The family of this 59-nucleotide sequence from Amycolatopsis pithecellobii is "Actino-pnp RNA".
The family's RNA type in Rfam is cis-regulatory element.
The family's consensus secondary structure is taken from published work.
[Rfam]
RNA sequence: GCCGGUCCUCGGUAGUGGCUUCCGGGAGUCGUUCCCGGGGGCUUCGAUCGAAGACCGGC
Numbered sequence: 001g002c003c004g005g006u007c008c009u010c011g012g013u014a015g016u017g018g019c020u021u022c023c024g025g026g027a028g029u030c031g032u033u034c035c036c037g038g039g040g041g042c043u044u045c046g047a048u049c050g051a052a053g054a055c056c057g058g059c
Stems, first nucleotide, its partner, number of pairs: 001059007009051005017043012